[Rfam]
sRNA-Xcc1: an 83-nucleotide RNA sequence from Xanthomonas citri. Rfam classes the family as a small RNA. The family's consensus secondary structure was predicted with RNAalifold. The literature on the family includes a 2011 paper in RNA Biol by Chen et al., "sRNA-Xcc1, an integron-encoded transposon- and plasmid-transferred trans-acting sRNA, is under the positive control of the key virulence regulators HrpG and HrpX of Xanthomonas campestris pathovar campestris". The sequence is in the family's curated seed alignment.
RNA sequence: GCCGGGAGGGCGGCGAAUACAACACCCGCAAGGGGAAUAAGCCCGCCGUCUGUUUGCGGUUGCUAACCUCCCGGCAUCCCGCC
Numbered sequence: 001g002c003c004g005g006g007a008g009g010g011c012g013g014c015g016a017a018u019a020c021a022a023c024a025c026c027c028g029c030a031a032g033g034g035g036a037a038u039a040a041g042c043c044c045g046c047c048g049u050c051u052g053u054u055u056g057c058g059g060u061u062g063c064u065a066a067c068c069u070c071c072c073g074g075c076a077u078c079c080c081g082c083c
Base pairs, nucleotide, nucleotide: 001075002074003073004072005071006070007069008068009067012043013042014041016038025034026033027032045060046059047058048057049056